Rfam assigns this 93-nucleotide RNA sequence from Acanthochromis polyacanthus to the family "mir-217 microRNA precursor family". Gene Ontology terms of the family: RISC complex and miRNA-mediated post-transcriptional gene silencing. The base pairs follow the family's consensus structure, which was predicted with RNAalifold.

[Rfam]
RNA sequence: AGCUUUCUGGUGUUGAUGAUACUGCAUCAGGAACUGAUUGGAAAGCGAUGAGAGGCCGUCAGCUCCUGAUGCACUGCCUUCAGCACUGAAAGA
Numbered sequence: 001a002g003c004u005u006u007c008u009g010g011u012g013u014u015g016a017u018g019a020u021a022c023u024g025c026a027u028c029a030g031g032a033a034c035u036g037a038u039u040g041g042a043a044a045g046c047g048a049u050g051a052g053a054g055g056c057c058g059u060c061a062g063c064u065c066c067u068g069a070u071g072c073a074c075u076g077c078c079u080u081c082a083g084c085a086c087u088g089a090a091a092g093a
Stems, first nucleotide, its partner, number of pairs: 023073005029067004034062004039058003
Dot-bracket structure: ......................(((((.((((.((((.(((..............))))))).)))).)))))....................